A member of the RNA family "Fluoride riboswitch aptamer (crcB RNA motif)" from Acidiferrobacter sp. SPIII_3, 64 nucleotides long. For this family Rfam cites "Widespread genetic switches and toxicity resistance proteins for fluoride" (Baker et al., Science, 2012). NCBI's taxonomy places the organism under Bacteria, Pseudomonadati, Pseudomonadota, Gammaproteobacteria, Acidiferrobacter. It scores 48 bits against the family's covariance model.
RNA sequence: CGUCUCGCGGGAGAUGGCAUGCCUCCCUAUAACCGCCCUCGCGGCUGAUGAUGCCUACGAUUUC
Numbered sequence: 001c002g003u004c005u006c007g008c009g010g011g012a013g014a015u016g017g018c019a020u021g022c023c024u025c026c027c028u029a030u031a032a033c034c035g036c037c038c039u040c041g042c043g044g045c046u047g048a049u050g051a052u053g054c055c056u057a058c059g060a061u062u063u064c
Base pairs, nucleotide, nucleotide: 010026011025012024013023016055017054018053019052020051035045036044037043
Dot-bracket structure: .........[[[[..(((((..]]]]........(((.....))).....))))).........